[Rfam]
RNA sequence: AUCAGGCCCGCCGCGCGGGUCAGGCCGGCGCCGCCCCACUUCACUAUCGGAGGGACGGAAGCAUCCGGUCCGGCGCCCGUCGAUAACCUGGCGCCACG
Numbered sequence: 001a002u003c004a005g006g007c008c009c010g011c012c013g014c015g016c017g018g019g020u021c022a023g024g025c026c027g028g029c030g031c032c033g034c035c036c037c038a039c040u041u042c043a044c045u046a047u048c049g050g051a052g053g054g055a056c057g058g059a060a061g062c063a064u065c066c067g068g069u070c071c072g073g074c075g076c077c078c079g080u081c082g083a084u085a086a087c088c089u090g091g092c093g094c095c096a097c098g
Base pairs, nucleotide, nucleotide: 005021006020007019008018009017010016023070024069025068026067027066028065029061031058032057033056072095073094074093075092076091077090
Dot-bracket structure: ....((((((.....)))))).(((((((.(((......................)))..)...)))))).((((((............))))))...